[Rfam]
RNA sequence: CUACAACGAUGGUAACAUUUUUCAUCCACAGCAGUUCACCUAGUGAGUAUUGAGACUUUGGGUCUGAGUGG
Numbered sequence: 001c002u003a004c005a006a007c008g009a010u011g012g013u014a015a016c017a018u019u020u021u022u023c024a025u026c027c028a029c030a031g032c033a034g035u036u037c038a039c040c041u042a043g044u045g046a047g048u049a050u051u052g053a054g055a056c057u058u059u060g061g062g063u064c065u066g067a068g069u070g071g
Base pairs, nucleotide, nucleotide: 002070003069004068008026009025010024011023

The record is a 71-nucleotide RNA sequence from Phyllostomus discolor, which matches "Small nucleolar RNA SNORD56" in Rfam. Rfam links the family to the GO terms nucleolus and RNA processing. It is annotated as a C/D-box small nucleolar RNA. The literature on the family includes a 2002 paper in Mol Cell Biol by Galardi et al., "Purified box C/D snoRNPs are able to reproduce site-specific 2'-O-methylation of target RNA in vitro".